[Rfam]
RNA sequence: GGACUUCAUCAAGAGAAGGGCUGGCGCCCUCGCCAACCUGCCAACCGCGGCAAGGUGGCACCGAUAAUCGGGAUGCGGCAAAGUUGGUUUCUUUGCAAGUCAAGCGGACUAU
Number, nucleotide and partner (000 for none) at each position: 001g000002g000003a000004c000005u000006u000007c075008a074009u073010c072011a000012a000013g000014a000015g031016a000017a030018g029019g028020g027021c026022u000023g000024g000025c000026g021027c020028c019029c018030u017031c015032g059033c058034c057035a000036a000037c055038c054039u053040g051041c050042c049043a000044a000045c107046c106047g105048c104049g042050g041051c040052a000053a039054g038055g037056u000057g034058g033059c032060a000061c000062c000063g000064a000065u000066a000067a000068u000069c000070g000071g000072g010073a009074u008075g007076c000077g000078g096079c095080a094081a093082a092083g091084u000085u000086g000087g000088u000089u000090u000091c083092u082093u081094u080095g079096c078097a000098a000099g000100u000101c000102a000103a000104g048105c047106g046107g045108a000109c000110u000111a000112u000
RNA: SAM-I/IV (S-adenosyl methionine) riboswitch aptamer